[Rfam]
RNA: Small nucleolar RNA snoR104
RNA sequence: GGGGGCCAUACUGAAGUUGAGAUGUUAACCCUGAUACAAUCUUCCUAUAUCAAUCUUGUAAUUUUCCUGCUUGUAGUUCUGAAAUAAAGUUCUACAAGUCUCAAAAUUACAGGACAUUUGA
Numbered sequence: 001g002g003g004g005g006c007c008a009u010a011c012u013g014a015a016g017u018u019g020a021g022a023u024g025u026u027a028a029c030c031c032u033g034a035u036a037c038a039a040u041c042u043u044c045c046u047a048u049a050u051c052a053a054u055c056u057u058g059u060a061a062u063u064u065u066c067c068u069g070c071u072u073g074u075a076g077u078u079c080u081g082a083a084a085u086a087a088a089g090u091u092c093u094a095c096a097a098g099u100c101u102c103a104a105a106a107u108u109a110c111a112g113g114a115c116a117u118u119u120g121a
Stems, first nucleotide, its partner, number of pairs: 001032003005026001007024003057114001069099008079089002